[Rfam]
This 231-nucleotide part of an RNA belongs to the Rfam family "Bacterial large subunit ribosomal RNA".
RNA sequence: GACUUAGUUUAUCUAGCGAGCUUAAGCCGUGAGGUGUAGGCGUAGCGAAAGCGAGUCUGAAUAGGGCGAUAUUUAGUUAGAUGAAUUAGACCCGAAACCGGGUGAUCUAGCCAUGGCCAGGUUGAAGGCGGAGUAAUAUUCGCUGAAGGACCGAACCCACUACUGUUGAAAAAGUAGGGGAUGAGCUGUGGCUAGGGGUGAAAGGCCAAUCAAACUCGGAUAUAGCUGGUU
Numbered sequence: 001g002a003c004u005u006a007g008u009u010u011a012u013c014u015a016g017c018g019a020g021c022u023u024a025a026g027c028c029g030u031g032a033g034g035u036g037u038a039g040g041c042g043u044a045g046c047g048a049a050a051g052c053g054a055g056u057c058u059g060a061a062u063a064g065g066g067c068g069a070u071a072u073u074u075a076g077u078u079a080g081a082u083g084a085a086u087u088a089g090a091c092c093c094g095a096a097a098c099c100g101g102g103u104g105a106u107c108u109a110g111c112c113a114u115g116g117c118c119a120g121g122u123u124g125a126a127g128g129c130g131g132a133g134u135a136a137u138a139u140u141c142g143c144u145g146a147a148g149g150a151c152c153g154a155a156c157c158c159a160c161u162a163c164u165g166u167u168g169a170a171a172a173a174g175u176a177g178g179g180g181a182u183g184a185g186c187u188g189u190g191g192c193u194a195g196g197g198g199u200g201a202a203a204g205g206c207c208a209a210u211c212a213a214a215c216u217c218g219g220a221u222a223u224a225g226c227u228g229g230u231u
Stems, first nucleotide, its partner, number of pairs: 005088013020041004026035003045052002055067004091229002094226001098219006107195011118183001120152004127144006156180003160177005197207003

The literature on the family includes a 2001 paper in Science by Yusupov et al., "Crystal structure of the ribosome at 5.5 A resolution".